[Rfam]
Record summary
Shown here is a 73-nucleotide RNA, a member of the family "RAGATH-18 RNA". From the family's description: Actinobacteria, Firmicutes, Fusobacteria, Thermotogae (1 example). The sequence is in the family's curated seed alignment.
RNA sequence: ACUGUGGAGUGUACACGAACUUGUGAGUAGCGUAUUGCUUGCAAUCGCCAAAGCAUACACAUCGAAGCAGUAA
Numbered sequence: 001a002c003u004g005u006g007g008a009g010u011g012u013a014c015a016c017g018a019a020c021u022u023g024u025g026a027g028u029a030g031c032g033u034a035u036u037g038c039u040u041g042c043a044a045u046c047g048c049c050a051a052a053g054c055a056u057a058c059a060c061a062u063c064g065a066a067g068c069a070g071u072a073a
Base pairs, nucleotide, nucleotide: 001071002070003069004068005067009060010059011058012057013056022055023054024053030048031047032046035044036043